Rfam assigns this 298-nucleotide RNA from Haemaphysalis longicornis to the family "Metazoan signal recognition particle RNA". Rfam's curators write: The signal recognition particle (SRP) is a universally conserved ribonucleoprotein. It is involved in the co-translational targeting of proteins to membranes. The eukaryotic SRP consists of a 300-nucleotide 7S RNA and six proteins: SRPs 72, 68, 54, 19, 14, and 9. Archaeal SRP consists of a 7S RNA and homologues of the eukaryotic SRP19 and SRP54 proteins. The match comes from Rfam's covariance-model search (246 bits). For this family Rfam cites "Crystal structure of the ribonucleoprotein core of the signal recognition particle" (Batey et al., Science, 2000). Pairs were carried over by alignment from the consensus structure, which is taken from published work. Gene Ontology terms of the family: SRP-dependent cotranslational protein targeting to membrane, signal sequence recognition and signal recognition particle, endoplasmic reticulum targeting. Rfam classes the family as a non-coding RNA gene. Its Rfam clan is "SRP clan".
RNA sequence: GCCGGGGGUCGUGGCGCGCCCCUGUAAUCCAGCUACUCGGAGGCCGGGUCUAGAGGACGGGGUGGCGCCGGGGGCUCUGCUCCACGGUCCCCCAUGUUGACGGGGCGUCCGCGCUAAGUGAGGCGUCAAUAUGGUGGCCCCGGGGGAGCCCGGGGCAACCAGGUUGCCUAAGGAGGAGCGAACCGGCCCAGGGCGGAAACGCAGCAGGCAAAAGUUCCCGCGUCUCGCAGUAGCGGGACCGCGCCUCCGAAUGGGAGCCGUGGGGCAGCCCGGAUGCCACGCUCGGACCUAGACCUUU
Numbered sequence: 001g002c003c004g005g006g007g008g009u010c011g012u013g014g015c016g017c018g019c020c021c022c023u024g025u026a027a028u029c030c031a032g033c034u035a036c037u038c039g040g041a042g043g044c045c046g047g048g049u050c051u052a053g054a055g056g057a058c059g060g061g062g063u064g065g066c067g068c069c070g071g072g073g074g075c076u077c078u079g080c081u082c083c084a085c086g087g088u089c090c091c092c093c094a095u096g097u098u099g100a101c102g103g104g105g106c107g108u109c110c111g112c113g114c115u116a117a118g119u120g121a122g123g124c125g126u127c128a129a130u131a132u133g134g135u136g137g138c139c140c141c142g143g144g145g146g147a148g149c150c151c152g153g154g155g156c157a158a159c160c161a162g163g164u165u166g167c168c169u170a171a172g173g174a175g176g177a178g179c180g181a182a183c184c185g186g187c188c189c190a191g192g193g194c195g196g197a198a199a200c201g202c203a204g205c206a207g208g209c210a211a212a213a214g215u216u217c218c219c220g221c222g223u224c225u226c227g228c229a230g231u232a233g234c235g236g237g238a239c240c241g242c243g244c245c246u247c248c249g250a251a252u253g254g255g256a257g258c259c260g261u262g263g264g265g266c267a268g269c270c271c272g273g274a275u276g277c278c279a280c281g282c283u284c285g286g287a288c289c290u291a292g293a294c295c296u297u298u
Stems, first nucleotide, its partner, number of pairs: 001044003004023006028041003046296008058285004064277001068273005077268012091255005097249001102247007109237002112235005118228009127166004132161004137156008167173002175218005186209003193202003